[Rfam]
RNA sequence: UUUAACGCAUAACUCCGAGCUUGUUUAGCCUAAGUUUCAUAGAAAUACGGUGGCAAGCCAAUAACGCGCUACGUUAUUCAGGGAUACGCUGGAAACGGUUUGUCCUCUCCGUAUUUAGAAAGGUGUAAAAUGCAAUCCAUU
Numbered sequence: 001u002u003u004a005a006c007g008c009a010u011a012a013c014u015c016c017g018a019g020c021u022u023g024u025u026u027a028g029c030c031u032a033a034g035u036u037u038c039a040u041a042g043a044a045a046u047a048c049g050g051u052g053g054c055a056a057g058c059c060a061a062u063a064a065c066g067c068g069c070u071a072c073g074u075u076a077u078u079c080a081g082g083g084a085u086a087c088g089c090u091g092g093a094a095a096c097g098g099u100u101u102g103u104c105c106u107c108u109c110c111g112u113a114u115u116u117a118g119a120a121a122g123g124u125g126u127a128a129a130a131u132g133c134a135a136u137c138c139a140u141u
Base pairs, nucleotide, nucleotide: 003135006132012126013125015123016122019058020057021056022055023054024053025052028051029050030049034046035045036044037043060078061077062076063075064074065073066072081106082105083104084103085102086101088099089098090097091096107118108117
This 141-nucleotide sequence from Haemophilus influenzae belongs to the Rfam family "Molybdenum/Tungsten riboswitch aptamer (Moco RNA motif)".